[Rfam]
RNA sequence: UAAACGCCGUCUGGAGAGUCAUCACUCAGCUGAUGCGCCGAAGGAGCAAAUAUUGGGUUAGUGCCCACAUAUGAAUCUCUCAGGUACCGAGGACAGGGGGAGCGGC
Number, nucleotide and partner (000 for none) at each position: 001u000002a000003a000004a000005c000006g000007c100008c099009g000010u097011c096012u095013g094014g000015a000016g000017a000018g000019u000020c035021a034022u033023c032024a000025c000026u000027c000028a000029g000030c000031u000032g023033a022034u021035g020036c000037g085038c084039c083040g081041a080042a000043g000044g079045a078046g077047c000048a000049a000050a072051u071052a070053u069054u000055g000056g000057g000058u000059u000060a000061g000062u000063g000064c000065c000066c000067a000068c000069a053070u052071a051072u050073g000074a000075a000076u000077c046078u045079c044080u041081c040082a000083g039084g038085u037086a000087c000088c000089g000090a000091g000092g000093a000094c013095a012096g011097g010098g000099g008100g007101a000102g000103c000104g000105g000106c000
RNA: Glycine riboswitch aptamer
Organism: Polynucleobacter antarcticus